[Rfam]
RNA sequence: CCCUCCUACAGAGGCAUGUCUGUGGUUCCCUGUCUUUGGACUUGUACGAAUUGGAGGCAAAGAAAUGUGGACUUGGAGAGAAGUCCAGGGCCAACUUGCUCCUUGCAGGCUCAUGAUCAACCAUCCCACACAG
Numbered sequence: 001c002c003c004u005c006c007u008a009c010a011g012a013g014g015c016a017u018g019u020c021u022g023u024g025g026u027u028c029c030c031u032g033u034c035u036u037u038g039g040a041c042u043u044g045u046a047c048g049a050a051u052u053g054g055a056g057g058c059a060a061a062g063a064a065a066u067g068u069g070g071a072c073u074u075g076g077a078g079a080g081a082a083g084u085c086c087a088g089g090g091c092c093a094a095c096u097u098g099c100u101c102c103u104u105g106c107a108g109g110c111u112c113a114u115g116a117u118c119a120a121c122c123a124u125c126c127c128a129c130a131c132a133g
Base pairs, nucleotide, nucleotide: 002057003056004055005054006053015044016043018041019040020039021038024030025029069126070125071124073123093111095109096108097107098106099105
RNA: Small nucleolar RNA SNORA38
Organism: Molossus molossus